[Rfam]
The family of this 76-nucleotide sequence from Bacteroides fragilis is "Bacteroidetes FopS (family of paralogous sRNAs)". The match comes from Rfam's covariance-model search (64 bits).
RNA sequence: GUGUUUUUUUCAUAAGUAUUAGAUUUAAGGUUAACAAAAGAUUGGUUGCUCGGGAUGAGUAGCCAUUUUUUGUAUA
Number, nucleotide and partner (000 for none) at each position: 001g000002u000003g000004u000005u000006u000007u000008u000009u000010u000011c000012a000013u000014a000015a000016g000017u000018a000019u000020u000021a000022g000023a000024u000025u000026u000027a000028a000029g000030g000031u000032u000033a000034a000035c000036a000037a000038a000039a000040g000041a000042u000043u000044g064045g063046u062047u061048g060049c059050u058051c000052g000053g000054g000055a000056u000057g000058a050059g049060u048061a047062g046063c045064c044065a000066u000067u000068u000069u000070u000071u000072g000073u000074a000075u000076a000
Rfam describes the family as follows. The RNA-binding protein RbpB and BTncRNA_FopS sRNA are involved in the post-transcription regulation of polysaccharide utilisation loci (PUL). FopS sRNAs function as post-transcriptional repressors by binding to the vicinity of the start codon of the first mRNA of target PUL polycistrons, typically corresponding to the cognate SusC homolog, impeding translation of the respective glycan transporter. It is annotated as a small RNA. Rfam links the family to the GO term sRNA-mediated gene silencing.